RNA: SucA RNA motif
Organism: Comamonas denitrificans
RNA sequence: UCGCAUCCGCCAAUCGGUACAGCCGUGUCGCGGGAGGUUCUCUAACCAACAAUGCUUUCCUCAGGAAAGCGGAUGUCAGCG
Numbered sequence: 001u002c003g004c005a006u007c008c009g010c011c012a013a014u015c016g017g018u019a020c021a022g023c024c025g026u027g028u029c030g031c032g033g034g035a036g037g038u039u040c041u042c043u044a045a046c047c048a049a050c051a052a053u054g055c056u057u058u059c060c061u062c063a064g065g066a067a068a069g070c071g072g073a074u075g076u077c078a079g080c081g
Stems, first nucleotide, its partner, number of pairs: 002081003006034005015025004036047004049076003054070007